[Rfam]
RNA sequence: AGUGUUUAAAUCACAUCUGUCCGGAGGUUUCUCCUCGUCAGAGCCAGUAACGAAUUGCUGUGUGUAGUCUUUGCCCAUCCCCUGUGAUGGGCUUUUUUUUUG
Numbered sequence: 001a002g003u004g005u006u007u008a009a010a011u012c013a014c015a016u017c018u019g020u021c022c023g024g025a026g027g028u029u030u031c032u033c034c035u036c037g038u039c040a041g042a043g044c045c046a047g048u049a050a051c052g053a054a055u056u057g058c059u060g061u062g063u064g065u066a067g068u069c070u071u072u073g074c075c076c077a078u079c080c081c082c083u084g085u086g087a088u089g090g091g092c093u094u095u096u097u098u099u100u101u102g
Base pairs, nucleotide, nucleotide: 002016003015004014027039031037056064057063058062073092074091075090076089077088078087079086
A member of the RNA family "RprA RNA" from Lonsdalea quercina, 102 nucleotides long. A search with the family's covariance model found it, with a score of 73 bits. It is annotated as a small RNA. Translational regulation of the stationary phase sigma factor RpoS is mediated by the formation of a double-stranded RNA stem-loop structure in the upstream region of the rpoS messenger RNA, occluding the translation initiation site. Lineage of the source: Bacteria > Pseudomonadati > Pseudomonadota > Enterobacterales > Lonsdalea. On this family, see Majdalani et al., Mol Microbiol 2001: "Regulation of RpoS by a novel small RNA: the characterization of RprA".